[Rfam]
RNA sequence: AUCGAUGCUGUGAAGGGUUUCAAGUAGUUCUUUUAUCCCUGUAGUUAAAGAGAGCUGAUGGUUGGUGCAAAUCAGCACAUAUAAAAGGACGAAUUACAGGCCAUGAGCACUGAUGAUCACAACAUGGUGAUCUAGGCGUUUGUCACGUUACGACAACGAGCGGAAAGCAAAAGCUUUCAAGUUGGGUGGUACCGCGGAUAAUCCGUCCCUACA
Numbered sequence: 001a002u003c004g005a006u007g008c009u010g011u012g013a014a015g016g017g018u019u020u021c022a023a024g025u026a027g028u029u030c031u032u033u034u035a036u037c038c039c040u041g042u043a044g045u046u047a048a049a050g051a052g053a054g055c056u057g058a059u060g061g062u063u064g065g066u067g068c069a070a071a072u073c074a075g076c077a078c079a080u081a082u083a084a085a086a087g088g089a090c091g092a093a094u095u096a097c098a099g100g101c102c103a104u105g106a107g108c109a110c111u112g113a114u115g116a117u118c119a120c121a122a123c124a125u126g127g128u129g130a131u132c133u134a135g136g137c138g139u140u141u142g143u144c145a146c147g148u149u150a151c152g153a154c155a156a157c158g159a160g161c162g163g164a165a166a167g168c169a170a171a172a173g174c175u176u177u178c179a180a181g182u183u184g185g186g187u188g189g190u191a192c193c194g195c196g197g198a199u200a201a202u203c204c205g206u207c208c209c210u211a212c213a
Base pairs, nucleotide, nucleotide: 007108008107016102017101018100027090028089029088030087031086032085044078045077054076055075056074057073058072059071110135111134112132113131114130116128137147138146139145163178164177165176166175167174168173184209185208186207194206195205196204197203198202
Dot-bracket structure: ......((.......(((........((((((...........((........((((((...........))))))))......)))))).........)))....)).(((((.(...........).))).)).(((.....)))...............((((((....)))))).....(((.......(((((...))))))))....